A member of the RNA family "mir-320 microRNA precursor family" from Callithrix jacchus, 76 nucleotides long. Pairs were carried over by alignment from the consensus structure, which was predicted with RNAalifold. The literature on the family includes a 2006 paper in Genome Res by Berezikov et al., "Many novel mammalian microRNA candidates identified by extensive cloning and RAKE analysis". Gene Ontology terms of the family: miRNA-mediated post-transcriptional gene silencing, long-term synaptic potentiation and RISC complex. The match comes from Rfam's covariance-model search (89 bits).
RNA sequence: AAAAAGAUCAGCCUUCUCUUCCCAGUUCUUCCUGGAGUCAGGAAAAGCUGGGUUGAGAGGGCAGGAAAAAAAAAAA
Numbered sequence: 001a002a003a004a005a006g007a008u009c010a011g012c013c014u015u016c017u018c019u020u021c022c023c024a025g026u027u028c029u030u031c032c033u034g035g036a037g038u039c040a041g042g043a044a045a046a047g048c049u050g051g052g053u054u055g056a057g058a059g060g061g062c063a064g065g066a067a068a069a070a071a072a073a074a075a076a
Stems, first nucleotide, its partner, number of pairs: 014059005021052005029044006